Rfam assigns this 119-nucleotide RNA from Paenibacillus catalpae to the family "Bacillus sRNA ncr1015".
Rfam classes the family as a small RNA.
NCBI's taxonomy places the organism under Bacteria, Bacilli, Caryophanales, Paenibacillaceae, Paenibacillus.
The literature on the family includes a 2010 paper in Nucleic Acids Res by Irnov et al., "Identification of regulatory RNAs in Bacillus subtilis".
It scores 98 bits against the family's covariance model.
The base pairs follow the family's consensus structure, which is taken from published work.
RNA sequence: UUGUAAGAUGAACUAACUAUGACUUCAUUUGAUGUGACAGUCGUGAUCUGAUUAUAUCAUCAUGCCUAUUGAUGUGCAAUAUAAAAGAACCUGGUGAAAAUACCCAGGUUCUUUUAUGA
Numbered sequence: 001u002u003g004u005a006a007g008a009u010g011a012a013c014u015a016a017c018u019a020u021g022a023c024u025u026c027a028u029u030u031g032a033u034g035u036g037a038c039a040g041u042c043g044u045g046a047u048c049u050g051a052u053u054a055u056a057u058c059a060u061c062a063u064g065c066c067u068a069u070u071g072a073u074g075u076g077c078a079a080u081a082u083a084a085a086a087g088a089a090c091c092u093g094g095u096g097a098a099a100a101u102a103c104c105c106a107g108g109u110u111c112u113u114u115u116a117u118g119a
Stems, first nucleotide, its partner, number of pairs: 034073002037070001040065002043061001083115012